[Rfam]
RNA sequence: ACUGGUGAUUGCCACUAGCGAGGUAUAGAGUUCCUACGUAUGCACACACUGUAGGAACUUCAUACCGUGCUCUUGGGUUUGCCAAA
Numbered sequence: 001a002c003u004g005g006u007g008a009u010u011g012c013c014a015c016u017a018g019c020g021a022g023g024u025a026u027a028g029a030g031u032u033c034c035u036a037c038g039u040a041u042g043c044a045c046a047c048a049c050u051g052u053a054g055g056a057a058c059u060u061c062a063u064a065c066c067g068u069g070c071u072c073u074u075g076g077g078u079u080u081g082c083c084a085a086a
Base pairs, nucleotide, nucleotide: 012076013075014074017071018070019069020068022066023065024064025063026062028060029059030058031057032056033055034054035053036052037051
The family of this 86-nucleotide RNA from Papilio machaon is "mir-276 microRNA precursor family". On this family, see Skalsky et al., BMC Genomics 2010: "Identification of microRNAs expressed in two mosquito vectors, Aedes albopictus and Culex quinquefasciatus". A search with the family's covariance model found it, with a score of 83 bits. The family has 42 seed sequences and 200 matches in Rfam 15.1. The family's consensus secondary structure was predicted with RNAalifold. Rfam links the family to the GO terms RISC complex and miRNA-mediated post-transcriptional gene silencing.